[Rfam]
The family of this 107-nucleotide sequence from Striga hermonthica is "Plant small nucleolar RNA R71". On this family, see Brown et al., Trends Plant Sci 2003: "Plant snoRNAs: functional evolution and new modes of gene expression".
RNA sequence: AAACCAUGUCGAGGGCAUCUUCUCAACAACUCUUUAAAUCGAUCCCACGCCUCGUAUAAAGGCUCCGAGUCUUGCUGCCUGAAUUGAGUAAUCUUGCUUUUGAGUUG
Numbered sequence: 001a002a003a004c005c006a007u008g009u010c011g012a013g014g015g016c017a018u019c020u021u022c023u024c025a026a027c028a029a030c031u032c033u034u035u036a037a038a039u040c041g042a043u044c045c046c047a048c049g050c051c052u053c054g055u056a057u058a059a060a061g062g063c064u065c066c067g068a069g070u071c072u073u074g075c076u077g078c079c080u081g082a083a084u085u086g087a088g089u090a091a092u093c094u095u096g097c098u099u100u101u102g103a104g105u106u107g
Stems, first nucleotide, its partner, number of pairs: 003105002005102002057074002
The family's consensus secondary structure was predicted with PFOLD. By type it is a C/D-box small nucleolar RNA.